RNA: terC RNA
RNA sequence: GUUGCGGACCGGGCCCCUCUGGCGCGCUAGCCCUGGCUUUUGCGCGUGAUGUCGGACCGCAUCG
Number, nucleotide and partner (000 for none) at each position: 001g000002u000003u000004g000005c000006g058007g057008a000009c055010c054011g053012g052013g000014c000015c000016c000017c000018u000019c000020u000021g000022g047023c046024g045025c044026g043027c042028u000029a040030g000031c000032c000033c000034u000035g000036g000037c000038u000039u000040u029041u000042g027043c026044g025045c024046g023047u022048g000049a000050u000051g000052u012053c011054g010055g009056a000057c007058c006059g000060c000061a000062u000063c000064g000